Rfam assigns this 74-nucleotide RNA sequence from Lactovum miscens to the family "tRNA". Lineage of the source: Bacteria > Bacillati > Bacillota > Bacilli > Lactovum. The match comes from Rfam's covariance-model search (71 bits). Rfam links the family to the GO term triplet codon-amino acid adaptor activity.
RNA sequence: GGAUCCUUAGCUCAGUUGGUUAGAGCUAUCGGCUCAUAACCGAUCGGUCGCUGGUUCGAGUCCAGCAGGAUCCA
Numbered sequence: 001g002g003a004u005c006c007u008u009a010g011c012u013c014a015g016u017u018g019g020u021u022a023g024a025g026c027u028a029u030c031g032g033c034u035c036a037u038a039a040c041c042g043a044u045c046g047g048u049c050g051c052u053g054g055u056u057c058g059a060g061u062c063c064a065g066c067a068g069g070a071u072c073c074a
Stems, first nucleotide, its partner, number of pairs: 001073007010026004028044005050066005